The family of this 72-nucleotide RNA from Rhipidura dahli is "Small nucleolar RNA SNORD34". Rfam's curators write: snoRNA U34 is found in intron 5 of the ribosomal protein L13a gene in humans. Rfam links the family to the GO terms nucleolus and RNA processing. The literature on the family includes a 2003 paper in Nucleic Acids Res by Chen et al., "The high diversity of snoRNAs in plants: identification and comparative study of 120 snoRNA genes from Oryza sativa". Taxonomically the source falls in Rhipidura (Eukaryota, Deuterostomia, Archosauria, Telluraves). Clan: SNORD34 clan.
RNA sequence: AGUGUCGAUGAUGCCAUUUUUACCUACAUUGUUUGACUCUCCCUGAGAAAAACCCCAAAUCCUGAGACACCU
Dot-bracket structure: ((((((...........................................................)))).))
Numbered sequence: 001a002g003u004g005u006c007g008a009u010g011a012u013g014c015c016a017u018u019u020u021u022a023c024c025u026a027c028a029u030u031g032u033u034u035g036a037c038u039c040u041c042c043c044u045g046a047g048a049a050a051a052a053c054c055c056c057a058a059a060u061c062c063u064g065a066g067a068c069a070c071c072u
Stems, first nucleotide, its partner, number of pairs: 001072002003069004